[Rfam]
RNA sequence: UGAGGCCAAUCUGGAAAGAAGGCGUAAAGCCUCGCCGAUGGUGUAAACCGGCCCGCCCGGUGAAUCUCUCAGGCAAAGGUACAGAGGGGGAAAA
Numbered sequence: 001u002g003a004g005g006c007c008a009a010u011c012u013g014g015a016a017a018g019a020a021g022g023c024g025u026a027a028a029g030c031c032u033c034g035c036c037g038a039u040g041g042u043g044u045a046a047a048c049c050g051g052c053c054c055g056c057c058c059g060g061u062g063a064a065u066c067u068c069u070c071a072g073g074c075a076a077a078g079g080u081a082c083a084g085a086g087g088g089g090g091a092a093a094a
Stems, first nucleotide, its partner, number of pairs: 006089002010085004020032004034074003037070002041068001043066001047061005
Rfam assigns this 94-nucleotide RNA from Bowdeniella nasicola to the family "Glycine riboswitch aptamer". It scores 66 bits against the family's covariance model. The source organism's lineage runs through Bacteria, Actinomycetota, Actinomycetes, Actinomycetaceae and Bowdeniella.